Rfam assigns this 387-nucleotide RNA from Vasconcelosia minhoensis to the family "Bacterial RNase P class A". Ribonuclease P (RNase P) is a ubiquitous endoribonuclease, found in archaea, bacteria and eukarya as well as chloroplasts and mitochondria.
RNA sequence: AGAGUUGGCGCAGCGGUUGCGGGCCAGGUUACCCUGGCCUGAGGAAAGUCCGGGCUCCCUAAAGACCAGACCUGCUGGGUAACGCCCAGUGCGGGUGACCGUGAGGAGAGUGCCACAGAAACAUACCGCCGAUGGCUGCGGGGCGCGAUCGCGUCGCCGCUGCACAGGUAAGGGUGCAAGGGUGCGGUAAGAGCGCACCAGCAGCAUCGAGAGGUGCUGGCUCGGUAAACCCCGGUUGGGUGCAAGGCCAUAGGGGCUAUGGUUGGUCUUUUACCAGCCCCGAUUAAGCGCGCCGCUAGAGGCGUCUGGUAACAGGCGUCCCAGAUAGAUAACCGCCUCGCUGCUAGGUCAGUGAGAACAGAACCCGGCUUAUGUCCAGCUCUUUCC
Numbered sequence: 001a002g003a004g005u006u007g008g009c010g011c012a013g014c015g016g017u018u019g020c021g022g023g024c025c026a027g028g029u030u031a032c033c034c035u036g037g038c039c040u041g042a043g044g045a046a047a048g049u050c051c052g053g054g055c056u057c058c059c060u061a062a063a064g065a066c067c068a069g070a071c072c073u074g075c076u077g078g079g080u081a082a083c084g085c086c087c088a089g090u091g092c093g094g095g096u097g098a099c100c101g102u103g104a105g106g107a108g109a110g111u112g113c114c115a116c117a118g119a120a121a122c123a124u125a126c127c128g129c130c131g132a133u134g135g136c137u138g139c140g141g142g143g144c145g146c147g148a149u150c151g152c153g154u155c156g157c158c159g160c161u162g163c164a165c166a167g168g169u170a171a172g173g174g175u176g177c178a179a180g181g182g183u184g185c186g187g188u189a190a191g192a193g194c195g196c197a198c199c200a201g202c203a204g205c206a207u208c209g210a211g212a213g214g215u216g217c218u219g220g221c222u223c224g225g226u227a228a229a230c231c232c233c234g235g236u237u238g239g240g241u242g243c244a245a246g247g248c249c250a251u252a253g254g255g256g257c258u259a260u261g262g263u264u265g266g267u268c269u270u271u272u273a274c275c276a277g278c279c280c281c282g283a284u285u286a287a288g289c290g291c292g293c294c295g296c297u298a299g300a301g302g303c304g305u306c307u308g309g310u311a312a313c314a315g316g317c318g319u320c321c322c323a324g325a326u327a328g329a330u331a332a333c334c335g336c337c338u339c340g341c342u343g344c345u346a347g348g349u350c351a352g353u354g355a356g357a358a359c360a361g362a363a364c365c366c367g368g369c370u371u372a373u374g375u376c377c378a379g380c381u382c383u384u385u386c387c
Stems, first nucleotide, its partner, number of pairs: 001383008013336006020041009046371003050368005055242001057240002064270002069237003073234002075089005090104001091102004105232002110230002112226003126173002128169003133164002181199006201221001202219007246294003253281006261275003265271001301320008